6C RNA: a 74-nucleotide RNA from Actinomadura sp. BRA 177. Taxonomically the source falls in Actinomadura (Bacteria, Bacillati, Actinomycetes, Thermomonosporaceae). Gene Ontology term of the family: sporulation. A search with the family's covariance model found it, with a score of 63 bits. For this family Rfam cites "Identification of 22 candidate structured RNAs in bacteria using the CMfinder comparative genomics pipeline" (Weinberg et al., Nucleic Acids Res, 2007). Rfam classes the family as a cis-regulatory element.
RNA sequence: AACGGACCGGCUCUACCCCCCCGGAGCCGGACCGUCAGGCGACCCCCGCUCCCCCCCGGCGGGGGUCGCCCAGU
Number, nucleotide and partner (000 for none) at each position: 001a000002a035003c034004g033005g032006a000007c030008c029009g028010g027011c026012u025013c024014u000015a000016c000017c000018c000019c000020c000021c000022c000023g000024g013025a012026g011027c010028c009029g008030g007031a000032c005033c004034g003035u002036c000037a000038g070039g069040c068041g067042a066043c065044c064045c063046c062047c061048g060049c059050u000051c000052c000053c000054c000055c000056c000057c000058g000059g049060c048061g047062g046063g045064g044065g043066u042067c041068g040069c039070c038071c000072a000073g000074u000